[Rfam]
A member of the RNA family "Guanidine-II riboswitch aptamer (mini-ykkC)" from Pseudochrobactrum saccharolyticum, 44 nucleotides long. A search with the family's covariance model found it, with a score of 33 bits. Rfam's curators write: Simpler in structure and has fewer highly conserved nucleotide positions than the ykkC-yxkD leader.

RNA sequence: CGCAGGACGACUUGCGCCGGUGUAACCCAACGGGGACGACCCCG
Numbered sequence: 001c002g003c004a005g006g007a008c009g010a011c012u013u014g015c016g017c018c019g020g021u022g023u024a025a026c027c028c029a030a031c032g033g034g035g036a037c038g039a040c041c042c043c044g
Stems, first nucleotide, its partner, number of pairs: 001016006031044005